[Rfam]
RNA: Small nucleolar RNA snoR125
Organism: Microthlaspi erraticum
RNA sequence: GGGCGAUGAUUGUAAAAAGAGAGGAUUGAGUGGGGAGUAUGAACAAAACUCUUAUGUGGAUGGAGGAAGAAAACUCAAAUCGAAAUCGAAGGAGAAAUCAUAUUAAUAAAUGUUUUUUUCCCUUUUUCGAUUUUGGGCGCUCUUUCUUCAUCCCUUUCCCUCGAUGACGGUCCUUCCAAUUUGUACACUUGAUAUGAGCCCU
Number, nucleotide and partner (000 for none) at each position: 001g201002g200003g199004c198005g000006a000007u000008g000009a193010u192011u191012g190013u000014a000015a000016a000017a000018a000019g000020a000021g162022a161023g160024g159025a000026u000027u054028g053029a052030g051031u000032g049033g000034g000035g000036a000037g000038u045039a000040u000041g000042a000043a000044c000045a038046a000047a000048a000049c032050u000051c030052u029053u028054a027055u000056g155057u000058g154059g153060a000061u000062g152063g151064a147065g146066g145067a144068a143069g142070a000071a000072a000073a000074c137075u136076c135077a133078a132079a131080u130081c129082g128083a127084a126085a125086u000087c000088g000089a000090a000091g121092g120093a119094g118095a117096a116097a115098u000099c000100a113101u112102a111103u110104u109105a000106a000107u000108a000109a104110a103111u102112g101113u100114u000115u097116u096117u095118u094119u093120c092121c091122c000123u000124u000125u085126u084127u083128c082129g081130a080131u079132u078133u077134u000135g076136g075137g074138c000139g000140c000141u000142c069143u068144u067145u066146c065147u064148u000149c000150a000151u063152c062153c059154c058155u056156u000157u000158c000159c024160c023161u022162c021163g000164a184165u183166g182167a181168c000169g177170g176171u000172c000173c000174u000175u000176c170177c169178a000179a000180u000181u167182u166183g165184u164185a000186c000187a000188c000189u000190u012191g011192a010193u009194a000195u000196g000197a000198g004199c003200c002201c001202u000